[Rfam]
RNA sequence: GCUGCUGCAUGUGAUGAGGACCCCCUUCUUUCCCCAUCUGAGCGACAGUGUUGAGUCCUCGCUCCUUUUCAAGCCAAGUCUUGCCUGAUGCACCCGC
Numbered sequence: 001g002c003u004g005c006u007g008c009a010u011g012u013g014a015u016g017a018g019g020a021c022c023c024c025c026u027u028c029u030u031u032c033c034c035c036a037u038c039u040g041a042g043c044g045a046c047a048g049u050g051u052u053g054a055g056u057c058c059u060c061g062c063u064c065c066u067u068u069u070c071a072a073g074c075c076a077a078g079u080c081u082u083g084c085c086u087g088a089u090g091c092a093c094c095c096g097c
Base pairs, nucleotide, nucleotide: 001097002096004094006092007091008090009089